The record is a 116-nucleotide RNA sequence from Bacteroides luti, which matches "Group II catalytic intron D1-D4-2" in Rfam. A reference for the family is Bonen and Vogel (2001), "The ins and outs of group II introns", Trends Genet. Gene Ontology term of the family: Group II intron splicing. Group II introns are found in rRNA, tRNA and mRNA of organelles in fungi, plants and protists, and also in mRNA in bacteria. Rfam 15.1 lists 1,231 matches to the family in 625 species. The base pairs follow the family's consensus structure. A search with the family's covariance model found it, with a score of 103 bits. Lineage of the source: Bacteria > Pseudomonadati > Bacteroidales > Bacteroidaceae > Bacteroides.
RNA sequence: GAGGGUAGGCCCCUCGUGACCGGCUUACAGGAGUUGGUUGCAAACCAGUGUAUGCUGCUUUGUUAAAGAGACGAGGUAGUGAGCGAUACAUUAAAAGUCGGCACAAGCCGGCAGGU
Numbered sequence: 001g002a003g004g005g006u007a008g009g010c011c012c013c014u015c016g017u018g019a020c021c022g023g024c025u026u027a028c029a030g031g032a033g034u035u036g037g038u039u040g041c042a043a044a045c046c047a048g049u050g051u052a053u054g055c056u057g058c059u060u061u062g063u064u065a066a067a068g069a070g071a072c073g074a075g076g077u078a079g080u081g082a083g084c085g086a087u088a089c090a091u092u093a094a095a096a097g098u099c100g101g102c103a104c105a106a107g108c109c110g111g112c113a114g115g116u
Stems, first nucleotide, its partner, number of pairs: 001015005016041006023034004046115001048091006054080002057077003061073004097112006